[Rfam]
RNA sequence: ACUGACCCGAGCCGUUUGUAACAAGGCUUAAAUUACAAUGUUUUGUUCGUUCGGCUCGCGUUACAA
Dot-bracket structure: ..(.((.((((((...((..((((.((............)).)))).))...)))))).)).)...
A member of the RNA family "mir-375 microRNA precursor family" from Lottia gigantea, 66 nucleotides long. It is one of the family's seed sequences. Rfam 15.1 lists 824 matches to the family in 730 species.